[Rfam]
RNA sequence: GGCUUCGGCCCGAACCGUCACCGUAUGGUGCGCGUUCCGAAAGGAUAGGGCUGAGGCCUUUU
Numbered sequence: 001g002g003c004u005u006c007g008g009c010c011c012g013a014a015c016c017g018u019c020a021c022c023g024u025a026u027g028g029u030g031c032g033c034g035u036u037c038c039g040a041a042a043g044g045a046u047a048g049g050g051c052u053g054a055g056g057c058c059u060u061u062u
Base pairs, nucleotide, nucleotide: 001058002057003056004055005054006053007052008051009050010049011048016034017033018032019030020029021028022027036045037044038043
RNA: DUF3800-IX RNA